RNA sequence: UUCGCAGGCCAUCUUAUCGCUUCUAGAAUAUAGAAGAGGAAAGUCCGGACACCAAAGAGCGGCAUAGCGGGUAACACCCGUCCUUCAAAAGAAGAGGAAAAGUGCAACAGAAAGAAUGUACAGUUAGGCUGUAGUGAAAUCAUGUAAACUCUAUGUGGUGCAACGCCAAGUAAAUCUACAUAAGAAUUGCUCGUUCAAAGUAGAAGGGUAGGCGGCUAGAGUGUUGAAGUAAUUUUACACCCAGAUAAAUGAUAAGACUAGACAGAAUCCGGCUUACAGGCCUGCUUUUUAA
Numbered sequence: 001u002u003c004g005c006a007g008g009c010c011a012u013c014u015u016a017u018c019g020c021u022u023c024u025a026g027a028a029u030a031u032a033g034a035a036g037a038g039g040a041a042a043g044u045c046c047g048g049a050c051a052c053c054a055a056a057g058a059g060c061g062g063c064a065u066a067g068c069g070g071g072u073a074a075c076a077c078c079c080g081u082c083c084u085u086c087a088a089a090a091g092a093a094g095a096g097g098a099a100a101a102g103u104g105c106a107a108c109a110g111a112a113a114g115a116a117u118g119u120a121c122a123g124u125u126a127g128g129c130u131g132u133a134g135u136g137a138a139a140u141c142a143u144g145u146a147a148a149c150u151c152u153a154u155g156u157g158g159u160g161c162a163a164c165g166c167c168a169a170g171u172a173a174a175u176c177u178a179c180a181u182a183a184g185a186a187u188u189g190c191u192c193g194u195u196c197a198a199a200g201u202a203g204a205a206g207g208g209u210a211g212g213c214g215g216c217u218a219g220a221g222u223g224u225u226g227a228a229g230u231a232a233u234u235u236u237a238c239a240c241c242c243a244g245a246u247a248a249a250u251g252a253u254a255a256g257a258c259u260a261g262a263c264a265g266a267a268u269c270c271g272g273c274u275u276a277c278a279g280g281c282c283u284g285c286u287u288u289u290u291a292a
Stems, first nucleotide, its partner, number of pairs: 004285007012257007020036006041275003045272005050160004057192004062156005067081005082096001083094004097151002102149002104145003119133006164214004175204005184196004221240004226235003
Bacterial RNase P class A: a 292-nucleotide RNA from Bacteroidetes bacterium SCGC AAA795-G10. A search with the family's covariance model found it, with a score of 198 bits. The family's RNA type in Rfam is ribozyme. From the family's description: Ribonuclease P (RNase P) is a ubiquitous endoribonuclease, found in archaea, bacteria and eukarya as well as chloroplasts and mitochondria. Lineage of the source: Bacteria > Pseudomonadati > Bacteroidota.